This 80-nucleotide sequence from Hermetia illucens belongs to the Rfam family "drz-agam-1 ribozyme". A search with the family's covariance model found it, with a score of 39 bits.
RNA sequence: CUACGACAAAACCCUAUCUCCACCUCCACAUGGUGACUGCUGGAAGUUCUUUCCUAACGAAAAGCUGCAGAUGGAGAAGG
Numbered sequence: 001c002u003a004c005g006a007c008a009a010a011a012c013c014c015u016a017u018c019u020c021c022a023c024c025u026c027c028a029c030a031u032g033g034u035g036a037c038u039g040c041u042g043g044a045a046g047u048u049c050u051u052u053c054c055u056a057a058c059g060a061a062a063a064g065c066u067g068c069a070g071a072u073g074g075a076g077a078a079g080g
Base pairs, nucleotide, nucleotide: 013080014079015078017076019074020073022034023033024032045066046065047064048063050061051060053059